[Rfam]
Shown here is a 57-nucleotide sequence from Artemisia annua, a member of the family "Plastid-psbA-3 3UTR RNA". NCBI's taxonomy places the organism under Eukaryota, Streptophytina, Embryophyta, Euphyllophyta, Artemisia. Clan: Plastid-psbA 3UTR RNA clan. On this family, see Richter et al., Plant Commun 2023: "Retrograde signaling in plants: A critical review focusing on the GUN pathway and beyond". Rfam's curators write: Plastid psbA-3 is a non-coding RNA (ncRNA) present in plastids. It was identified in inverted repeat sequences in the 3 prime untranslate region (3UTR) of photosystem II quinone-binding protein (psbA). The base pairs follow the family's consensus structure, which was predicted with LocARNA.

RNA sequence: AGAAGAGCAAUAGCUUUCCUCUUGUUUUAUCAAAAGGACAUUAUUGCUCCUUUUUUG
Number, nucleotide and partner (000 for none) at each position: 001a053002g052003a051004a000005g049006a048007g047008c046009a045010a044011u043012a042013g041014c000015u000016u000017u000018c000019c036020u035021c000022u033023u032024g031025u000026u000027u000028u000029a000030u000031c024032a023033a022034a000035a020036g019037g000038a000039c000040a000041u013042u012043a011044u010045u009046g008047c007048u006049c005050c000051u003052u002053u001054u000055u000056u000057g000